RNA: c-di-GMP-I riboswitch aptamer
RNA sequence: UCCCCGAAAUGGCAACUUCUUCCGAAAGGAGAGGACGCAAAUUAGCAGGCCUAAGCUACCCAGCUUUUAGGUGUAUGGACGCUGCUAAUACCGAA
Numbered sequence: 001u002c003c004c005c006g007a008a009a010u011g012g013c014a015a016c017u018u019c020u021u022c023c024g025a026a027a028g029g030a031g032a033g034g035a036c037g038c039a040a041a042u043u044a045g046c047a048g049g050c051c052u053a054a055g056c057u058a059c060c061c062a063g064c065u066u067u068u069a070g071g072u073g074u075a076u077g078g079a080c081g082c083u084g085c086u087a088a089u090a091c092c093g094a095a
Stems, first nucleotide, its partner, number of pairs: 012038002017033004022029002041089004046084003050078002056073001059070001